[Rfam]
RNA: Small nucleolar RNA snR43
Organism: Metschnikowia pulcherrima
RNA sequence: CACUCCUGUUUCUGCCCUGAAUUCAUCCGCAUUGAAUUUUAGGUCUUGUUUAUGGAGAAGAAGAAGCCCGUGAACGGCUCAGUGAAAUUUUGUAACCUUUGCUGCUGCUUUUGACGGGAUCGUGAGGUAAGCAGUUCCUAGAAGGUGGGGCCUCUCUUGAGAUCCUUACCGGGCUGUUGUCUCUACACUU
Numbered sequence: 001c002a003c004u005c006c007u008g009u010u011u012c013u014g015c016c017c018u019g020a021a022u023u024c025a026u027c028c029g030c031a032u033u034g035a036a037u038u039u040u041a042g043g044u045c046u047u048g049u050u051u052a053u054g055g056a057g058a059a060g061a062a063g064a065a066g067c068c069c070g071u072g073a074a075c076g077g078c079u080c081a082g083u084g085a086a087a088u089u090u091u092g093u094a095a096c097c098u099u100u101g102c103u104g105c106u107g108c109u110u111u112u113g114a115c116g117g118g119a120u121c122g123u124g125a126g127g128u129a130a131g132c133a134g135u136u137c138c139u140a141g142a143a144g145g146u147g148g149g150g151c152c153u154c155u156c157u158u159g160a161g162a163u164c165c166u167u168a169c170c171g172g173g174c175u176g177u178u179g180u181c182u183c184u185a186c187a188c189u190u
Stems, first nucleotide, its partner, number of pairs: 003057004016043004020038006067118005073112002076109003080104007124183004130178005144170004148164001150163001152161003